[Rfam]
RNA sequence: GCGAUGAGCUGCUCUGCGUAAGUCGGACAGACAUUCCUUCGGGAACACGUUGUGGAGCGUGGUCUGGAUCGCCGCAGAUGAGAGACUAGCAUGAGGCUAGUCC
Numbered sequence: 001g002c003g004a005u006g007a008g009c010u011g012c013u014c015u016g017c018g019u020a021a022g023u024c025g026g027a028c029a030g031a032c033a034u035u036c037c038u039u040c041g042g043g044a045a046c047a048c049g050u051u052g053u054g055g056a057g058c059g060u061g062g063u064c065u066g067g068a069u070c071g072c073c074g075c076a077g078a079u080g081a082g083a084g085a086c087u088a089g090c091a092u093g094a095g096g097c098u099a100g101u102c103c
Base pairs, nucleotide, nucleotide: 014077015076016075017074018073024071025070026069029065030064031063032062035044036043046061047060049058050057051056084102085101086100087099088098089097090096
Dot-bracket structure: .............(((((.....(((..((((..((......)).((.(((....))).))))))...))).)))))......(((((((.....))))))).

Shown here is a 103-nucleotide sequence from Tetzosporium hominis, a member of the family "BsrF". The source organism's lineage runs through Bacteria, Bacillota, Caryophanales, Caryophanaceae and Tetzosporium. It scores 54 bits against the family's covariance model. The family's RNA type in Rfam is small RNA. The base pairs follow the family's consensus structure, which was predicted with WAR.